RNA sequence: AACCGUACAGCGAUCGGGCUGUACGAAGGGCUGAUUGGAGCCGAAGUA
Numbered sequence: 001a002a003c004c005g006u007a008c009a010g011c012g013a014u015c016g017g018g019c020u021g022u023a024c025g026a027a028g029g030g031c032u033g034a035u036u037g038g039a040g041c042c043g044a045a046g047u048a
Stems, first nucleotide, its partner, number of pairs: 004025008029042004
About this RNA:
gut-2 RNA: a 48-nucleotide RNA from Ruminococcus sp. YE71. The source organism's lineage runs through Bacteria, Bacillota, Clostridia, Eubacteriales and Ruminococcus.